[Rfam]
The record is a 108-nucleotide RNA from Methylomonas denitrificans, which matches "TPP riboswitch aptamer (THI element)" in Rfam.
Gene Ontology term of the family: thiamine pyrophosphate binding.
It scores 69 bits against the family's covariance model.
RNA sequence: CUGAAAGGCUAGGGGUGCUUUCCGCUGUAUGCAAGCCCGGAAAGCUGAGAAAAACCCUUCGAACCUGAACCGGUUAACACCGGCGUAGGAAAGCCCUAUCUUCCCUGC
Numbered sequence: 001c002u003g004a005a006a007g008g009c010u011a012g013g014g015g016u017g018c019u020u021u022c023c024g025c026u027g028u029a030u031g032c033a034a035g036c037c038c039g040g041a042a043a044g045c046u047g048a049g050a051a052a053a054a055c056c057c058u059u060c061g062a063a064c065c066u067g068a069a070c071c072g073g074u075u076a077a078c079a080c081c082g083g084c085g086u087a088g089g090a091a092a093g094c095c096c097u098a099u100c101u102u103c104c105c106u107g108c
Stems, first nucleotide, its partner, number of pairs: 007095004011058004016052001017045008064089004070083004